Vault RNA: an 84-nucleotide sequence from Nephila pilipes. A reference for the family is Stadler et al. (2009), "Evolution of Vault RNAs", Mol Biol Evol. The match comes from Rfam's covariance-model search (46 bits). Rfam describes the family as follows. This family of RNAs are found as part of the enigmatic vault ribonucleoprotein complex. The complex consists of a major vault protein (MVP), two minor vault proteins (VPARP and TEP1), and several small untranslated RNA molecules. It has been suggested that the vault complex is involved in drug resistance.
[Rfam]
RNA sequence: GCGUAGGCUUAGUCUUGUGGUUACUUCGUUGACUCGACUUUUAAUCGAAAUCUUUUCAGACCACUGACGCUAUCCUACGUUUUA
Numbered sequence: 001g002c003g004u005a006g007g008c009u010u011a012g013u014c015u016u017g018u019g020g021u022u023a024c025u026u027c028g029u030u031g032a033c034u035c036g037a038c039u040u041u042u043a044a045u046c047g048a049a050a051u052c053u054u055u056u057c058a059g060a061c062c063a064c065u066g067a068c069g070c071u072a073u074c075c076u077a078c079g080u081u082u083u084a
Base pairs, nucleotide, nucleotide: 002079003078004077005076006075007074012068013067014066017064018063019062020061025049026048027047028046